[Rfam]
RNA sequence: GUCACUCUAUGAUUCUCUCUGACUAAACCCUUCCAGGCAGCCAGAGUGGUGAUGAUCUGUGAC
Numbered sequence: 001g002u003c004a005c006u007c008u009a010u011g012a013u014u015c016u017c018u019c020u021g022a023c024u025a026a027a028c029c030c031u032u033c034c035a036g037g038c039a040g041c042c043a044g045a046g047u048g049g050u051g052a053u054g055a056u057c058u059g060u061g062a063c
Base pairs, nucleotide, nucleotide: 001063002062003061004060005059014049015048017046018045019044020043021042023040029037030036031035

Record summary
Shown here is a 63-nucleotide sequence from Phocoena sinus, a member of the family "Selenocysteine insertion sequence 1". Taxonomically the source falls in Phocoena (Eukaryota, Bilateria, Deuterostomia, Euteleostomi). Rfam's curators write: The incorporation of selenocysteine into a protein sequence is directed by an in-frame UGA codon (usually a stop codon) within the coding region of the mRNA. Selenoprotein mRNAs contain a conserved secondary structure in the 3' UTR that is required for the distinction of UGA stop from UGA selenocysteine. The selenocysteine insertion sequence (SECIS) is around 60 nt in length and adopts a hairpin structure which is sufficiently well-defined and conserved to act as a computational screen for selenoprotein genes. For this family Rfam cites "A novel RNA structural motif in the selenocysteine insertion element of eukaryotic selenoprotein mRNAs" (Walczak et al., RNA, 1996). By type it is a cis-regulatory element.